Shown here is a 120-nucleotide sequence from Senna tora, a member of the family "mir-393 microRNA precursor family". The pairing is the family consensus, mapped onto this sequence. It scores 70 bits against the family's covariance model. Rfam 15.1 lists 1,052 matches to the family in 221 species. Lineage of the source: Eukaryota > Embryophyta > Gunneridae > fabids > Senna.
[Rfam]
RNA sequence: AAAGGAGGAAUCCAAAGGGAUAGCAUGAUCCCAAAUUAAAAUUUGUAGGAAUUAAUUAAGGAAUUAGAUGGGAAGGGUUGAGAGAUUUGGGAUCAAUGCGAUCCCUUUGGAUGCCUCCUC
Number, nucleotide and partner (000 for none) at each position: 001a000002a000003a119004g118005g117006a116007g000008g114009a000010a112011u111012c110013c109014a108015a107016a106017g105018g104019g103020a102021u101022a000023g099024c098025a097026u095027g094028a093029u092030c091031c090032c000033a000034a000035a087036u000037u000038a000039a000040a000041a000042u000043u000044u000045g000046u000047a000048g000049g000050a000051a000052u000053u000054a000055a000056u000057u000058a000059a000060g000061g000062a000063a000064u000065u000066a000067g000068a000069u000070g000071g000072g000073a000074a000075g000076g000077g000078u000079u000080g000081a000082g000083a000084g000085a000086u000087u035088u000089g000090g031091g030092a029093u028094c027095a026096a000097u025098g024099c023100g000101a021102u020103c019104c018105c017106u016107u015108u014109g013110g012111a011112u010113g000114c008115c000116u006117c005118c004119u003120c000